This 135-nucleotide sequence from Ferrimicrobium acidiphilum belongs to the Rfam family "Group II catalytic intron D1-D4-2". The organism belongs to Ferrimicrobium acidiphilum, within Bacteria. Rfam describes the family as follows. Group II introns are found in rRNA, tRNA and mRNA of organelles in fungi, plants and protists, and also in mRNA in bacteria. Rfam 15.1 lists 1,231 matches to the family in 625 species.
RNA sequence: GGAGGAAGGAGCUUUAGCUCUCUGGCCCUCCGAUAUCAACUUACGAGCAAGGGAUGUCGAACCGGCACAAGCUGCGUUGGUAACGUGCCAGGGUAGUGAGCGUUGUGUUAAAGGGCGGAGAUACCUCCGUCAUGU
Numbered sequence: 001g002g003a004g005g006a007a008g009g010a011g012c013u014u015u016a017g018c019u020c021u022c023u024g025g026c027c028c029u030c031c032g033a034u035a036u037c038a039a040c041u042u043a044c045g046a047g048c049a050a051g052g053g054a055u056g057u058c059g060a061a062c063c064g065g066c067a068c069a070a071g072c073u074g075c076g077u078u079g080g081u082a083a084c085g086u087g088c089c090a091g092g093g094u095a096g097u098g099a100g101c102g103u104u105g106u107g108u109u110a111a112a113g114g115g116c117g118g119a120g121a122u123a124c125c126u127c128c129g130u131c132a133u134g135u
Base pairs, nucleotide, nucleotide: 001031002030003029004028005027032058033057034056035055036054037053040051041050042049063134065108066107067106068105069104070103071097072096074094075093078090079089080088081087114131115130116129117128118127119126